[Rfam]
RNA sequence: AAUUACCGCUAGGGGUGCUUUGGCUGAGAGAAGAGAAAUCUUCAACCCUUUUACCUGAUCUGGUUAGUACCAGCGGAGGGAAGUGGUCUGUUUCACCG
Numbered sequence: 001a002a003u004u005a006c007c008g009c010u011a012g013g014g015g016u017g018c019u020u021u022g023g024c025u026g027a028g029a030g031a032a033g034a035g036a037a038a039u040c041u042u043c044a045a046c047c048c049u050u051u052u053a054c055c056u057g058a059u060c061u062g063g064u065u066a067g068u069a070c071c072a073g074c075g076g077a078g079g080g081a082a083g084u085g086g087u088c089u090g091u092u093u094c095a096c097c098g
Stems, first nucleotide, its partner, number of pairs: 006086005011049004017024002031042004054079003060073004

The record is a 98-nucleotide RNA sequence from Kroppenstedtia pulmonis, which matches "TPP riboswitch aptamer (THI element)" in Rfam.